[Rfam]
A member of the RNA family "Small nucleolar RNA Z157/R69/R10" from Capsicum baccatum, 105 nucleotides long. The family has 10 seed sequences and 836 matches in Rfam 15.1. Pairs were carried over by alignment from the consensus structure, which was predicted with PFOLD. Lineage of the source: Eukaryota > Streptophyta > Spermatophyta > Solanales > Capsicum. The family is grouped with related families in Rfam's "SNORD52 clan". For this family Rfam cites "The high diversity of snoRNAs in plants: identification and comparative study of 120 snoRNA genes from Oryza sativa" (Chen et al., Nucleic Acids Res, 2003).
RNA sequence: AUGUGUGUGAUGAGGAAGCAAUAUUUGUGGACUAGAGUUUCUGAUCUGGGGAUUAGACCCCCCAAUUUGGUUGAAGACAAAACCCUUGGCUGUCUGAGCACACUC
Numbered sequence: 001a002u003g004u005g006u007g008u009g010a011u012g013a014g015g016a017a018g019c020a021a022u023a024u025u026u027g028u029g030g031a032c033u034a035g036a037g038u039u040u041c042u043g044a045u046c047u048g049g050g051g052a053u054u055a056g057a058c059c060c061c062c063c064a065a066u067u068u069g070g071u072u073g074a075a076g077a078c079a080a081a082a083c084c085c086u087u088g089g090c091u092g093u094c095u096g097a098g099c100a101c102a103c104u105c
Base pairs, nucleotide, nucleotide: 003103004102005101006100007099008098038076039075040074041073045069047064048063049062050061